[Rfam]
RNA sequence: GAGUGAAAUGAUGGUCUACCAUCUUUCGGGACUUACCCAAGACAUGGGGAUAACUUUGUUUCAUGCUGAUCACUC
Number, nucleotide and partner (000 for none) at each position: 001g075002a074003g073004u072005g071006a070007a000008a000009u000010g000011a000012u000013g000014g000015u000016c000017u000018a000019c000020c000021a000022u000023c000024u000025u000026u000027c000028g000029g000030g000031a000032c000033u000034u000035a000036c000037c000038c000039a000040a000041g000042a000043c000044a000045u000046g000047g000048g000049g000050a000051u000052a000053a000054c000055u000056u000057u000058g000059u000060u000061u000062c000063a000064u000065g000066c000067u000068g000069a000070u006071c005072a004073c003074u002075c001